The record is a 72-nucleotide RNA sequence from Asparagus officinalis, which matches "Small nucleolar RNA Z105" in Rfam. Gene Ontology terms of the family: nucleolus and RNA processing. The literature on the family includes a 2003 paper in Nucleic Acids Res by Chen et al., "The high diversity of snoRNAs in plants: identification and comparative study of 120 snoRNA genes from Oryza sativa".
RNA sequence: GGGGCAUGAUGAUGAACGAUUAUUUCUGAGAUAUUAUUCUCUGAGCGAUCAUAAUCCUCCUCCUCAUUCUGA
Numbered sequence: 001g002g003g004g005c006a007u008g009a010u011g012a013u014g015a016a017c018g019a020u021u022a023u024u025u026c027u028g029a030g031a032u033a034u035u036a037u038u039c040u041c042u043g044a045g046c047g048a049u050c051a052u053a054a055u056c057c058u059c060c061u062c063c064u065c066a067u068u069c070u071g072a
Stems, first nucleotide, its partner, number of pairs: 006067004027048001031042001